[Rfam]
RNA sequence: CGAUCCUCGGCUACACUCUGAAAUCACCCACUGCUCCAUGGUGUAUUUCAAUUUUUGCCCGAGGUAGAUAAAGCCUAGUUCCACUACUCACCGCCAUGUGUCUGAUAUCAAAUUGGUCAUAGCGGUCCAUUGAUCGGAUCAACAU
Number, nucleotide and partner (000 for none) at each position: 001c000002g000003a000004u000005c000006c000007u062008c061009g060010g000011c000012u000013a000014c000015a000016c000017u000018c000019u050020g049021a048022a047023a046024u045025c043026a042027c041028c040029c000030a000031c000032u000033g000034c000035u000036c000037c000038a000039u000040g028041g027042u026043g025044u000045a024046u023047u022048u021049c020050a019051a000052u000053u000054u000055u000056u000057g000058c000059c000060c009061g008062a007063g000064g000065u000066a000067g000068a000069u000070a000071a000072a000073g000074c000075c000076u000077a000078g140079u000080u138081c137082c000083a000084c000085u000086a000087c000088u000089c000090a000091c125092c124093g123094c122095c000096a120097u119098g118099u000100g117101u116102c115103u000104g000105a000106u000107a000108u000109c000110a000111a000112a000113u000114u000115g102116g101117u100118c098119a097120u096121a000122g094123c093124g092125g091126u000127c000128c000129a000130u000131u000132g000133a000134u000135c000136g000137g081138a080139u000140c078141a000142a000143c000144a000145u000